[Rfam]
RNA sequence: ACGACCUUACUUGUACAGGAUCUGUUCUAUAGGCUCGUAUCUCUUUAUCCUUGAGUUAUAAAGAGACAAUUAUCACAGUCUGGUGGAUGAGUUAUAGCUGCCCGGCCAGAGCGUGAUUAACAGACCCUUUGGGCUCGGCCAUGAGUCUACUGGGUCAGUAGAGGAUCCUUUGGGCUCGGCCAUGAGUCUAUUGGGUCAGUAGAGGAUCUGUUCUAUAGGCU
Number, nucleotide and partner (000 for none) at each position: 001a038002c037003g035004a000005c033006c032007u031008u000009a000010c000011u000012u000013g027014u000015a025016c024017a023018g022019g000020a000021u000022c018023u017024g016025u015026u000027c013028u000029a000030u000031a007032g006033g005034c000035u003036c000037g002038u001039a000040u000041c000042u000043c000044u068045u000046u066047a000048u064049c063050c000051u061052u060053g059054a000055g000056u000057u000058a000059u053060a052061a051062a000063g049064a048065g000066a046067c000068a044069a000070u000071u000072a000073u000074c000075a000076c000077a000078g220079u219080c218081u217082g216083g000084u000085g000086g000087a000088u000089g000090a000091g000092u000093u000094a000095u000096a000097g000098c202099u201100g200101c199102c000103c000104g196105g000106c194107c193108a192109g000110a170111g169112c000113g167114u000115g000116a000117u000118u000119a000120a159121c158122a000123g156124a155125c154126c153127c152128u000129u000130u149131g148132g147133g146134c145135u144136c143137g000138g000139c000140c000141a000142u000143g136144a135145g134146u133147c132148u131149a130150c000151u000152g127153g126154g125155u124156c123157a000158g121159u120160a000161g000162a000163g000164g000165a000166u000167c113168c000169u111170u110171u190172g189173g188174g187175c186176u185177c184178g183179g000180c000181c000182a000183u178184g177185a176186g175187u174188c173189u172190a171191u000192u108193g107194g106195g000196u104197c000198a000199g101200u100201a099202g098203a000204g000205g000206a000207u000208c000209u000210g000211u000212u000213c000214u000215a000216u082217a081218g080219g079220c078221u000

Shown here is a 221-nucleotide RNA sequence from Striga hermonthica, a member of the family "Plant small nucleolar RNA U3". Rfam classes the family as a C/D-box small nucleolar RNA. The family is grouped with related families in Rfam's "U3 clan". Rfam's curators write: Small nucleolar RNAs (snoRNAs) are involved in the processing and modification of rRNA in the nucleolus. There are two main classes of snoRNAs: the box C/D class, and the box H/ACA class. U3 snoRNA is a member of the box C/D class. The match comes from Rfam's covariance-model search (105 bits). Rfam links the family to the GO terms nucleolus and RNA processing.